[Rfam]
This 610-nucleotide RNA sequence from Saccharomyces paradoxus belongs to the Rfam family "Small nucleolar RNA snR30". Rfam links the family to the GO terms nucleolus and RNA processing. On this family, see Lubben et al., J Biol Chem 1995: "Isolation and characterization of the small nucleolar ribonucleoprotein particle snR30 from Saccharomyces cerevisiae".
RNA sequence: AACCAUAGUCUCGUGCUAGUUCGGUACUAUACAGGGAAGGGAAGUCACUCGCAUACGUGUGUGUGCACUUCUUGCUAUUGCUGCUUAGCUUCUCUAAAACACUGGGCUAGCGUUUUCAACGCUCGAGAGGCAGAGUCUCAAGGAGCCCCCAAUGGGCCUCACGUAUUCACAUCUAGAUGGCGCUUCGGACAACGGCAUCACAUAAGGGAUGCAGCUCCUGACUUCUCCUCUGAUCUUCGUGACCAGGGUUUUGAGUCGUCGGACAACGGGCAGUUUCUCUUAGUCGUUGCGUCGGGUGCUGUUGCUUUAACGAUGUGUACGAGAGGUUCGGGGGCUGUUGCCAUGAUAUAUAUGGAUGAGACAGAAGUAGCCCCGUUGACGAGUUUAACUUAGAUCAAGUAGGAUGCAUGACCUUGAGCUCUUUUCCUAUACUUUGUCCUAUGUCCGGCUUUCUCCUUAUUACGAAGAGAUUGCAUGAUGAAGGUGCAGAGUGGGAAAAUCUGAGUUCGGUCGUCUUUGUUGUUCGUCCUACCGCAGUAUAUUCCUAAACACUAUGAAAUGACCCUAGUUGGUCCAUGAUCAUUUGGGUAAAACCAUACUGCAGAUAUCU
Numbered sequence: 001a002a003c004c005a006u007a008g009u010c011u012c013g014u015g016c017u018a019g020u021u022c023g024g025u026a027c028u029a030u031a032c033a034g035g036g037a038a039g040g041g042a043a044g045u046c047a048c049u050c051g052c053a054u055a056c057g058u059g060u061g062u063g064u065g066c067a068c069u070u071c072u073u074g075c076u077a078u079u080g081c082u083g084c085u086u087a088g089c090u091u092c093u094c095u096a097a098a099a100c101a102c103u104g105g106g107c108u109a110g111c112g113u114u115u116u117c118a119a120c121g122c123u124c125g126a127g128a129g130g131c132a133g134a135g136u137c138u139c140a141a142g143g144a145g146c147c148c149c150c151a152a153u154g155g156g157c158c159u160c161a162c163g164u165a166u167u168c169a170c171a172u173c174u175a176g177a178u179g180g181c182g183c184u185u186c187g188g189a190c191a192a193c194g195g196c197a198u199c200a201c202a203u204a205a206g207g208g209a210u211g212c213a214g215c216u217c218c219u220g221a222c223u224u225c226u227c228c229u230c231u232g233a234u235c236u237u238c239g240u241g242a243c244c245a246g247g248g249u250u251u252u253g254a255g256u257c258g259u260c261g262g263a264c265a266a267c268g269g270g271c272a273g274u275u276u277c278u279c280u281u282a283g284u285c286g287u288u289g290c291g292u293c294g295g296g297u298g299c300u301g302u303u304g305c306u307u308u309a310a311c312g313a314u315g316u317g318u319a320c321g322a323g324a325g326g327u328u329c330g331g332g333g334g335c336u337g338u339u340g341c342c343a344u345g346a347u348a349u350a351u352a353u354g355g356a357u358g359a360g361a362c363a364g365a366a367g368u369a370g371c372c373c374c375g376u377u378g379a380c381g382a383g384u385u386u387a388a389c390u391u392a393g394a395u396c397a398a399g400u401a402g403g404a405u406g407c408a409u410g411a412c413c414u415u416g417a418g419c420u421c422u423u424u425u426c427c428u429a430u431a432c433u434u435u436g437u438c439c440u441a442u443g444u445c446c447g448g449c450u451u452u453c454u455c456c457u458u459a460u461u462a463c464g465a466a467g468a469g470a471u472u473g474c475a476u477g478a479u480g481a482a483g484g485u486g487c488a489g490a491g492u493g494g495g496a497a498a499a500u501c502u503g504a505g506u507u508c509g510g511u512c513g514u515c516u517u518u519g520u521u522g523u524u525c526g527u528c529c530u531a532c533c534g535c536a537g538u539a540u541a542u543u544c545c546u547a548a549a550c551a552c553u554a555u556g557a558a559a560u561g562a563c564c565c566u567a568g569u570u571g572g573u574c575c576a577u578g579a580u581c582a583u584u585u586g587g588g589u590a591a592a593a594c595c596a597u598a599c600u601g602c603a604g605a606u607a608u609c610u
Base pairs, nucleotide, nucleotide: 009037010036011035012034013032014031015030017029018028019027020026042391043390044389045388047384048383050381051380052378053377055376056375057374059102060101061100062099074089075088076087077086104373105372106371107370108369109368112131113129114128115127116126117125135362136361137360138359139358140357144336145335146334147333148332149331150330154329155328156327157326158325159324160323163320164319165318166317184310185309187306188305190304191303192302193301194300195299196298197297198296199295200284201283203282204281205280206279207278208277209276212273214271215270216269217268218262219261220260221259222258225255226254227253228248229247230246231245232244234242235241341355342354343353344352345351399532400531401530402529403528404527405526406525409513410512411511412510415509416508417507418506419505420504421503422499423498424497425496426495427494428493431492432491433490434489435488436487437486438484439483440482442480443479445477448474449473452470453469454468455467534602535601536600537599538598539597540596551589552588553587557585558584559583560582561581562580564578566576568574